[Rfam]
RNA sequence: AAACGAUGAUGAUUUUGUAGAAUCUAUAGGUCUCGUUCGUCGUAAUGGCGAAUUUUUGCCUUGACGACCCACCCAUAUUCUGAGUUC
Dot-bracket structure: .(((.............................................(((....)...)).....................))).
Numbered sequence: 001a002a003a004c005g006a007u008g009a010u011g012a013u014u015u016u017g018u019a020g021a022a023u024c025u026a027u028a029g030g031u032c033u034c035g036u037u038c039g040u041c042g043u044a045a046u047g048g049c050g051a052a053u054u055u056u057u058g059c060c061u062u063g064a065c066g067a068c069c070c071a072c073c074c075a076u077a078u079u080c081u082g083a084g085u086u087c
Stems, first nucleotide, its partner, number of pairs: 002086003050062002052057001

The record is an 87-nucleotide RNA from Rhynchospora breviuscula, which matches "Small nucleolar RNA Z43" in Rfam. Lineage of the source: Eukaryota > Viridiplantae > Streptophyta > Magnoliopsida > Rhynchospora. The family's RNA type in Rfam is C/D-box small nucleolar RNA. Its family is annotated with nucleolus and RNA processing in the Gene Ontology.